[Rfam]
RNA: mir-133 microRNA precursor family
RNA sequence: CAGCUUUAGCUGGUUGAAUCCGGGUCAAAUCUUUAUAUUACGGCUAUUUGGUCCCCUUCAACCAGCUGUGGUUG
Number, nucleotide and partner (000 for none) at each position: 001c000002a000003g072004c071005u070006u000007u000008a067009g066010c065011u064012g063013g062014u061015u060016g059017a058018a057019u000020c000021c000022g053023g052024g000025u051026c050027a049028a048029a047030u046031c000032u000033u000034u000035a000036u000037a000038u000039u000040a000041c000042g000043g000044c000045u000046a030047u029048u028049u027050g026051g025052u023053c022054c000055c000056c000057u018058u017059c016060a015061a014062c013063c012064a011065g010066c009067u008068g000069u000070g005071g004072u003073u000074g000